[Rfam]
RNA sequence: GGUCAGUGAUGAGAUGUAAAAGGUCUGAAGCCUGACUCUCAACCCACUUCCUGUGCUCCUCCCAGCAGCCCCUGCUGUUAUUCCAGUAUGCUCUAGGUGUGUAUCGCUGGUUCGCGGGGAGGCUGAUAUUUAAGUGGCUGUGCUGAGUGUGUGUUUCUGAGAGCAACAGGUCUCACACACACAGCUGCAGCACACACACACACACACUGGAGGAAGGAGGUGCAGUAGAGACUAAACAGAGGCUCAUGAUCUCCAGUUUUCAAGCUGAGACC
Numbered sequence: 001g002g003u004c005a006g007u008g009a010u011g012a013g014a015u016g017u018a019a020a021a022g023g024u025c026u027g028a029a030g031c032c033u034g035a036c037u038c039u040c041a042a043c044c045c046a047c048u049u050c051c052u053g054u055g056c057u058c059c060u061c062c063c064a065g066c067a068g069c070c071c072c073u074g075c076u077g078u079u080a081u082u083c084c085a086g087u088a089u090g091c092u093c094u095a096g097g098u099g100u101g102u103a104u105c106g107c108u109g110g111u112u113c114g115c116g117g118g119g120a121g122g123c124u125g126a127u128a129u130u131u132a133a134g135u136g137g138c139u140g141u142g143c144u145g146a147g148u149g150u151g152u153g154u155u156u157c158u159g160a161g162a163g164c165a166a167c168a169g170g171u172c173u174c175a176c177a178c179a180c181a182c183a184g185c186u187g188c189a190g191c192a193c194a195c196a197c198a199c200a201c202a203c204a205c206a207c208u209g210g211a212g213g214a215a216g217g218a219g220g221u222g223c224a225g226u227a228g229a230g231a232c233u234a235a236a237c238a239g240a241g242g243c244u245c246a247u248g249a250u251c252u253c254c255a256g257u258u259u260u261c262a263a264g265c266u267g268a269g270a271c272c
Stems, first nucleotide, its partner, number of pairs: 001272004034253002039248001044228001045222003059212004063125004069119001083110005091101001135192001137191006150179005156168001158166001

About this RNA: Shown here is a 272-nucleotide sequence from Astyanax mexicanus, a member of the family "Small Cajal body specific RNA 6". It is annotated as a small Cajal body RNA. Rfam links the family to the GO terms nucleolus and RNA processing.